RNA sequence: UAAUGUAAACAGAAAAAGGAAGCCCCGCUAGAACAGGGCUUCCCAUGUAGAGCCGUUUAAGACGGUGGCAAAGUUUAAUAAUAGAUUAAA
Numbered sequence: 001u002a003a004u005g006u007a008a009a010c011a012g013a014a015a016a017a018g019g020a021a022g023c024c025c026c027g028c029u030a031g032a033a034c035a036g037g038g039c040u041u042c043c044c045a046u047g048u049a050g051a052g053c054c055g056u057u058u059a060a061g062a063c064g065g066u067g068g069c070a071a072a073g074u075u076u077a078a079u080a081a082u083a084g085a086u087u088a089a090a
Stems, first nucleotide, its partner, number of pairs: 024037002027034001052066006